[Rfam]
RNA sequence: GCCAUACUACGGUGCAUCGUGGUGGAAAGUAAACGAUGACCCCUAUGGAACUCUGGGGUAAAAUACGUAUCAAAUUGCGAAAUUGAUUCUGGCCUGGAGCUUGCUCCGGGUCAGGUUUCUUU
Numbered sequence: 001g002c003c004a005u006a007c008u009a010c011g012g013u014g015c016a017u018c019g020u021g022g023u024g025g026a027a028a029g030u031a032a033a034c035g036a037u038g039a040c041c042c043c044u045a046u047g048g049a050a051c052u053c054u055g056g057g058g059u060a061a062a063a064u065a066c067g068u069a070u071c072a073a074a075u076u077g078c079g080a081a082a083u084u085g086a087u088u089c090u091g092g093c094c095u096g097g098a099g100c101u102u103g104c105u106c107c108g109g110g111u112c113a114g115g116u117u118u119c120u121u122u
Base pairs, nucleotide, nucleotide: 001040003038004037005036010035011034014030015029041048042047057071058070059069060068088115089114090113091112092111093110094109095108096107097106098105
Enterobacteria greA leader: a 122-nucleotide sequence from Erwinia tasmaniensis. The literature on the family includes a 2010 paper in Genome Biol by Naville and Gautheret, "Premature terminator analysis sheds light on a hidden world of bacterial transcriptional attenuation". NCBI's taxonomy places the organism under Bacteria, Pseudomonadati, Gammaproteobacteria, Erwiniaceae, Erwinia. The sequence is in the family's curated seed alignment.